The family of this 76-nucleotide RNA sequence from Xanthomonas oryzae is "Xanthomonas sRNA sX9". By type it is a small RNA. A reference for the family is Schmidtke et al. (2011), "Genome-wide transcriptome analysis of the plant pathogen Xanthomonas identifies sRNAs with putative virulence functions", Nucleic Acids Res. Lineage of the source: Bacteria > Lysobacterales > Lysobacteraceae > Xanthomonas oryzae > Xanthomonas oryzae pv. oryzae.

[Rfam]
RNA sequence: AGGUAGCACGCGUGCACUCCGGUUCCUGUGCGCCGUCCACGUCCACUUGACGGUGACUGGCUAAGGUUUGUUCGCC
Numbered sequence: 001a002g003g004u005a006g007c008a009c010g011c012g013u014g015c016a017c018u019c020c021g022g023u024u025c026c027u028g029u030g031c032g033c034c035g036u037c038c039a040c041g042u043c044c045a046c047u048u049g050a051c052g053g054u055g056a057c058u059g060g061c062u063a064a065g066g067u068u069u070g071u072u073c074g075c076c
Stems, first nucleotide, its partner, number of pairs: 003015003020035004025030001047074001049072005